[Rfam]
RNA sequence: UAGCCGGUGGGAGUCCGGUCGAGGUAGGGGCCAGACCGCCUCGUAGCUAGCAGACGUCUGGUGGCGAGAGUCUAAGGAUGGAGCAUCUGUGGAAAGCCCAGAAGGGCGAAGCAAACUUGCAGGCCGCAACAUAA
Numbered sequence: 001u002a003g004c005c006g007g008u009g010g011g012a013g014u015c016c017g018g019u020c021g022a023g024g025u026a027g028g029g030g031c032c033a034g035a036c037c038g039c040c041u042c043g044u045a046g047c048u049a050g051c052a053g054a055c056g057u058c059u060g061g062u063g064g065c066g067a068g069a070g071u072c073u074a075a076g077g078a079u080g081g082a083g084c085a086u087c088u089g090u091g092g093a094a095a096g097c098c099c100a101g102a103a104g105g106g107c108g109a110a111g112c113a114a115a116c117u118u119g120c121a122g123g124c125c126g127c128a129a130c131a132u133a134a
Stems, first nucleotide, its partner, number of pairs: 020043005050090005055080005064071002096107003111127002
Shown here is a 134-nucleotide RNA sequence from Alicyclobacillaceae bacterium I2511, a member of the family "Group II catalytic intron D1-D4-4". Rfam's curators write: Group II introns are found in rRNA, tRNA and mRNA of organelles in fungi, plants and protists, and also in mRNA in bacteria. Gene Ontology term of the family: Group II intron splicing. The base pairs follow the family's consensus structure. The family has 90 seed sequences and 840 matches in Rfam 15.1.